[Rfam]
RNA: T-box leader
Organism: Mesobacillus selenatarsenatis
RNA sequence: ACAGAAACGAUGACAGGGACAGUAUGGCGUUCCAGUUGCUUGCUUUUCAGCGAAAUGGGGAAGGUGGAAGCCCAUUGCAAGCGGAUAGCCAGAAAAUCACCCGAUAGUUCCGAGCUGAACAUCCUUUUAGGAUCAGUAAGCAUAGGCGUGACAUUCGCGUUAAGAAUGCUAAGAGGACAGGAUAAUGAAUCCUUGUCUAUUUAGGGUGGUACCGCGGGAAUUAUAACCUUCUCGUCCCUUUU
Numbered sequence: 001a002c003a004g005a006a007a008c009g010a011u012g013a014c015a016g017g018g019a020c021a022g023u024a025u026g027g028c029g030u031u032c033c034a035g036u037u038g039c040u041u042g043c044u045u046u047u048c049a050g051c052g053a054a055a056u057g058g059g060g061a062a063g064g065u066g067g068a069a070g071c072c073c074a075u076u077g078c079a080a081g082c083g084g085a086u087a088g089c090c091a092g093a094a095a096a097u098c099a100c101c102c103g104a105u106a107g108u109u110c111c112g113a114g115c116u117g118a119a120c121a122u123c124c125u126u127u128u129a130g131g132a133u134c135a136g137u138a139a140g141c142a143u144a145g146g147c148g149u150g151a152c153a154u155u156c157g158c159g160u161u162a163a164g165a166a167u168g169c170u171a172a173g174a175g176g177a178c179a180g181g182a183u184a185a186u187g188a189a190u191c192c193u194u195g196u197c198u199a200u201u202u203a204g205g206g207u208g209g210u211a212c213c214g215c216g217g218g219a220a221u222u223a224u225a226a227c228c229u230u231c232u233c234g235u236c237c238c239u240u241u242u
Base pairs, nucleotide, nucleotide: 007108008107016102017101018100025091026090027089028088037079038078039077054076055075056074057073058072059071110145112143114141115140116139147159148158149157176197177196178195179194180193181192203239204238205237206236214235215234216233217232218231219230220229